[Rfam]
The record is a 91-nucleotide RNA sequence from Rhus chinensis, which matches "Plastid-psbM 3UTR RNA" in Rfam. From the family's description: Plastid psbM is a non-coding RNA (ncRNA) recognised in plastids. The sequence is in the family's curated seed alignment. Rfam classes the family as a cis-regulatory element. For this family Rfam cites "Retrograde signaling in plants: A critical review focusing on the GUN pathway and beyond" (Richter et al., Plant Commun, 2023).
RNA sequence: GAUUCGAUAGUAUGGUCGAAAGAUUCAUAUAUGAAUCUUUCGACCAUACUAUCUAUUUUGAUUAUUGUACUGUAGAAAGAUACAAACUGAA
Numbered sequence: 001g002a003u004u005c006g007a008u009a010g011u012a013u014g015g016u017c018g019a020a021a022g023a024u025u026c027a028u029a030u031a032u033g034a035a036u037c038u039u040u041c042g043a044c045c046a047u048a049c050u051a052u053c054u055a056u057u058u059u060g061a062u063u064a065u066u067g068u069a070c071u072g073u074a075g076a077a078a079g080a081u082a083c084a085a086a087c088u089g090a091a
Stems, first nucleotide, its partner, number of pairs: 006053022

The organism belongs to Rhus, within Eukaryota.